[Rfam]
RNA: MIR6135 microRNA precursor family
RNA sequence: AUGAAGUUAAUUUCAUGAUAAGUUGGUCAAUUGACCAAUAUAGUGUUGACAUGCAGACAAAGAGAUUACUUUCUGUCUGCGUGUCGAUACUGUAUUGGUUAAUUAAUCAAAGUUAACUUCAU
Numbered sequence: 001a002u003g004a005a006g007u008u009a010a011u012u013u014c015a016u017g018a019u020a021a022g023u024u025g026g027u028c029a030a031u032u033g034a035c036c037a038a039u040a041u042a043g044u045g046u047u048g049a050c051a052u053g054c055a056g057a058c059a060a061a062g063a064g065a066u067u068a069c070u071u072u073c074u075g076u077c078u079g080c081g082u083g084u085c086g087a088u089a090c091u092g093u094a095u096u097g098g099u100u101a102a103u104u105a106a107u108c109a110a111a112g113u114u115a116a117c118u119u120c121a122u
Base pairs, nucleotide, nucleotide: 001122002121003120004119005118006117007116008115011111012110013109025108026107027106029104030103031102032101033100034099036097037096038095039094040093041092042091043090044089045088047086048085049084051082052081054079055078056077057076058075059074
Dot-bracket structure: ((((((((..(((...........(((.((((((.((((((((((.(((.((.((((((..............)))))).)).))).)))))))))).)))))).))))))...))))))))